[Rfam]
Rfam assigns this 96-nucleotide RNA sequence from Pseudofulvimonas gallinarii to the family "t44 RNA". A search with the family's covariance model found it, with a score of 56 bits.
RNA sequence: CGGACAGUCCGCCGAAUUCGCACACGCAUCGUCACCCUGGUGGGGUGCCCCGGCCGAAAAACGGGGUCGCCAGCGGCGGAUGCGUGGAGGAUGAAC
Dot-bracket structure: ......................((((((((....((((((((....(((((...........))))))))))).))..))))))))..........
Numbered sequence: 001c002g003g004a005c006a007g008u009c010c011g012c013c014g015a016a017u018u019c020g021c022a023c024a025c026g027c028a029u030c031g032u033c034a035c036c037c038u039g040g041u042g043g044g045g046u047g048c049c050c051c052g053g054c055c056g057a058a059a060a061a062c063g064g065g066g067u068c069g070c071c072a073g074c075g076g077c078g079g080a081u082g083c084g085u086g087g088a089g090g091a092u093g094a095a096c
Stems, first nucleotide, its partner, number of pairs: 023086008035076002037073006047067005